A member of the RNA family "Small nucleolar RNA SNORD58" from Oryctolagus cuniculus, 64 nucleotides long. Rfam 15.1 lists 2,484 matches to the family in 680 species. The family's RNA type in Rfam is C/D-box small nucleolar RNA. A reference for the family is Galardi et al. (2002), "Purified box C/D snoRNPs are able to reproduce site-specific 2'-O-methylation of target RNA in vitro", Mol Cell Biol. The base pairs follow the family's consensus structure, which was predicted with PFOLD. Rfam describes the family as follows. snoRNA U58 is found in introns 1, 3 and 6 of the ribosomal protein RPL17 gene in humans.
RNA sequence: UUGCUGUGAUGGCUAUCUUAGGACACCUUUGGAAUAACCGUGAAAGGAAAUUGUUCUGAGCAAC
Numbered sequence: 001u002u003g004c005u006g007u008g009a010u011g012g013c014u015a016u017c018u019u020a021g022g023a024c025a026c027c028u029u030u031g032g033a034a035u036a037a038c039c040g041u042g043a044a045a046g047g048a049a050a051u052u053g054u055u056c057u058g059a060g061c062a063a064c
Stems, first nucleotide, its partner, number of pairs: 001063004